[Rfam]
The record is a 77-nucleotide sequence from Pararge aegeria, which matches "mir-2796 microRNA precursor family" in Rfam. Gene Ontology terms of the family: RISC complex and miRNA-mediated post-transcriptional gene silencing. The source organism's lineage runs through Eukaryota, Hexapoda, Satyrini, Pararge and Pararge aegeria. The family has 6 seed sequences and 119 matches in Rfam 15.1. A search with the family's covariance model found it, with a score of 91 bits.

RNA sequence: UGCUAUCAGCAGGGGUUUCUUUCGGCCUUCAGCUAUUAAAAAGACUGUAGGCCGGCGGAAACUACUUGCUGAUGUUA
Dot-bracket structure: ....((((.(((((((((((.(((((((.(((............))).))))))).))))))).)))).))))....